This 100-nucleotide RNA sequence from Stackebrandtia endophytica belongs to the Rfam family "Glycine riboswitch aptamer". Its family is annotated with glycine biosynthetic process in the Gene Ontology. From the family's description: This family represents the bacterial glycine riboswitch.
RNA sequence: GCAUCCCGCGCGGGAGAGUUCACGCCGUAGCCAUGGGCGUGGCGCCGAAGGAGCAACUCCUCCCCGGAACCUCUCAGGCGGCCAGGACCGCGUGGAUUGG
Numbered sequence: 001g002c003a004u005c006c007c008g009c010g011c012g013g014g015a016g017a018g019u020u021c022a023c024g025c026c027g028u029a030g031c032c033a034u035g036g037g038c039g040u041g042g043c044g045c046c047g048a049a050g051g052a053g054c055a056a057c058u059c060c061u062c063c064c065c066g067g068a069a070c071c072u073c074u075c076a077g078g079c080g081g082c083c084a085g086g087a088c089c090g091c092g093u094g095g096a097u098u099g100g
Stems, first nucleotide, its partner, number of pairs: 006095008020042007044079003047075002051073003057067002